[Rfam]
Shown here is an 89-nucleotide sequence from Nitrincola tapanii, a member of the family "t44 RNA".

RNA sequence: CUUCGGCACACCUUAACACACACACUUACCGUCACAUAUAACCUGGGUGCUGCUUUGCGGUGGGUAUAUGGGGUAGGUGGAGGUUAAAC
Numbered sequence: 001c002u003u004c005g006g007c008a009c010a011c012c013u014u015a016a017c018a019c020a021c022a023c024a025c026u027u028a029c030c031g032u033c034a035c036a037u038a039u040a041a042c043c044u045g046g047g048u049g050c051u052g053c054u055u056u057g058c059g060g061u062g063g064g065u066a067u068a069u070g071g072g073g074u075a076g077g078u079g080g081a082g083g084u085u086a087a088a089c
Stems, first nucleotide, its partner, number of pairs: 023079008035070005041065004049061005
The family's consensus secondary structure was predicted with LocARNA.